The family of this 90-nucleotide RNA sequence from Novipirellula artificiosorum is "Group II catalytic intron D1-D4-1".

RNA sequence: UCCCGGAUGCGGUAACGCACCUCCGUGCUGCGAGCAGUCAGCAAACGUCAUAGUACCGAUCUGCCAAUCUCCAAUGGCAACGGGAAGGAC
Numbered sequence: 001u002c003c004c005g006g007a008u009g010c011g012g013u014a015a016c017g018c019a020c021c022u023c024c025g026u027g028c029u030g031c032g033a034g035c036a037g038u039c040a041g042c043a044a045a046c047g048u049c050a051u052a053g054u055a056c057c058g059a060u061c062u063g064c065c066a067a068u069c070u071c072c073a074a075u076g077g078c079a080a081c082g083g084g085a086a087g088g089a090c
Stems, first nucleotide, its partner, number of pairs: 001025001005022002008019004037046002047090003056083003063078003

From the family's description: Group II introns are found in rRNA, tRNA and mRNA of organelles in fungi, plants and protists, and also in mRNA in bacteria.